Rfam assigns this 102-nucleotide RNA sequence from Planococcus lenghuensis to the family "Purine riboswitch aptamer". Riboswitches are metabolite binding domains within certain messenger RNAs that serve as precision sensors for their corresponding targets. The source organism's lineage runs through Bacteria, Bacillati, Bacillota, Caryophanaceae and Planococcus.
[Rfam]
RNA sequence: AAUCAUAGAGUCAGGCACCCUCAUAUAUGUCCGUUAAUAAGGUACGGAUGUCUCUACCAAGUCACCGGAAAUGACUUGUCUAUGAAGGUGAAUGCGCACAGG
Numbered sequence: 001a002a003u004c005a006u007a008g009a010g011u012c013a014g015g016c017a018c019c020c021u022c023a024u025a026u027a028u029g030u031c032c033g034u035u036a037a038u039a040a041g042g043u044a045c046g047g048a049u050g051u052c053u054c055u056a057c058c059a060a061g062u063c064a065c066c067g068g069a070a071a072u073g074a075c076u077u078g079u080c081u082a083u084g085a086a087g088g089u090g091a092a093u094g095c096g097c098a099c100a101g102g
Stems, first nucleotide, its partner, number of pairs: 018088002021085005029049006058078007